RNA sequence: CCUGCGACGGGACAGAAAGACCCCGUGGAGCUUUACUGCAGCCUGACAUUGGACUUCGGUAUUGCAUGUACAGGAUAGGUGGGAGGCAGGGAAGCCAGGGCGCCAGCCUUGGUGGAGCCGACCUUGGGAUACCACCCUUGUGGUAUUGGAGUUCUAACAGGGUACCGUGAAGGCCGGUACAUGGACAGUGUCAGGUGGGCAGUUUGACUGGGGCGGUCGCCUCCUAAAAGGUAACGGAGGCGCCCAAAGGUUCCCUCAGCGCGGUUGGAAAUCGCGCGUAAGAGUGCAAAGGCAGAAGGGAGCUUGACAGCGAGACUGACCGGUCGAGCUGGGACGAAAGUCGGGCUUAGUGAUCCGGCGGUAGCGAGUGGAAGCGCCGUCGCUCAACGGAUAAAAGCUACCCCGGGGAUAACAGGCUUAUCUCCCCCAAGAGUUCACAUCGACGGGGAGGUUUGGCACCUCGAUGUCGGCUCAUCGCAUCCUGGGGCUGGAGUAGGUCCCAAGGGUUGGGCUGUUCGCCCAUUAAAGCGGUACGUGAGCUGGGUUCAGAACGUCGUGAGACAGUUCGGUCCCUAUCCGUCGCAGGCGCA
Numbered sequence: 001c002c003u004g005c006g007a008c009g010g011g012a013c014a015g016a017a018a019g020a021c022c023c024c025g026u027g028g029a030g031c032u033u034u035a036c037u038g039c040a041g042c043c044u045g046a047c048a049u050u051g052g053a054c055u056u057c058g059g060u061a062u063u064g065c066a067u068g069u070a071c072a073g074g075a076u077a078g079g080u081g082g083g084a085g086g087c088a089g090g091g092a093a094g095c096c097a098g099g100g101c102g103c104c105a106g107c108c109u110u111g112g113u114g115g116a117g118c119c120g121a122c123c124u125u126g127g128g129a130u131a132c133c134a135c136c137c138u139u140g141u142g143g144u145a146u147u148g149g150a151g152u153u154c155u156a157a158c159a160g161g162g163u164a165c166c167g168u169g170a171a172g173g174c175c176g177g178u179a180c181a182u183g184g185a186c187a188g189u190g191u192c193a194g195g196u197g198g199g200c201a202g203u204u205u206g207a208c209u210g211g212g213g214c215g216g217u218c219g220c221c222u223c224c225u226a227a228a229a230g231g232u233a234a235c236g237g238a239g240g241c242g243c244c245c246a247a248a249g250g251u252u253c254c255c256u257c258a259g260c261g262c263g264g265u266u267g268g269a270a271a272u273c274g275c276g277c278g279u280a281a282g283a284g285u286g287c288a289a290a291g292g293c294a295g296a297a298g299g300g301a302g303c304u305u306g307a308c309a310g311c312g313a314g315a316c317u318g319a320c321c322g323g324u325c326g327a328g329c330u331g332g333g334a335c336g337a338a339a340g341u342c343g344g345g346c347u348u349a350g351u352g353a354u355c356c357g358g359c360g361g362u363a364g365c366g367a368g369u370g371g372a373a374g375c376g377c378c379g380u381c382g383c384u385c386a387a388c389g390g391a392u393a394a395a396a397g398c399u400a401c402c403c404c405g406g407g408g409a410u411a412a413c414a415g416g417c418u419u420a421u422c423u424c425c426c427c428c429a430a431g432a433g434u435u436c437a438c439a440u441c442g443a444c445g446g447g448g449a450g451g452u453u454u455g456g457c458a459c460c461u462c463g464a465u466g467u468c469g470g471c472u473c474a475u476c477g478c479a480u481c482c483u484g485g486g487g488c489u490g491g492a493g494u495a496g497g498u499c500c501c502a503a504g505g506g507u508u509g510g511g512c513u514g515u516u517c518g519c520c521c522a523u524u525a526a527a528g529c530g531g532u533a534c535g536u537g538a539g540c541u542g543g544g545u546u547c548a549g550a551a552c553g554u555c556g557u558g559a560g561a562c563a564g565u566u567c568g569g570u571c572c573c574u575a576u577c578c579g580u581c582g583c584a585g586g587c588g589c590a
Base pairs, nucleotide, nucleotide: 001586002585003584004583005582006581007580008579010578011577012576015572022407023406024405025404027403028402029399030398031397032396033395035203036202037201038200042195043194044193045192046191047190048189051154052153053152054151055150056149057148058147059146060145061144062143063142064141065140066139068137078136079135080134081133082132085119086118087117094113095112096111097110098109099108100107101106158183159182162180163179164178165177166176167175206218207217208216209215219241220240221239222238223237224236242388244345245344250303251302252301253300254299255298256283257282259277260276261275262274263273264272284293285292308331309330310329311328314325315324316323333342334341335340356382357381358380359379360378361377362376364375365374416457417456418455420454421451422450423449424448425447426446427445431441432440468543469541470540471539472538473535474532475531476530477529478528481506482505484501485500486499487498488497489496508522509521510520511519512518549567550566551565552564553562554561555560
Bacterial large subunit ribosomal RNA: a 590-nucleotide part of an RNA from Desulfofundulus salinus. It scores 2907 bits against the family's covariance model. Its family is annotated with ribosome and structural constituent of ribosome in the Gene Ontology. The family's consensus secondary structure is taken from published work. The organism belongs to Desulfofundulus, within Bacteria.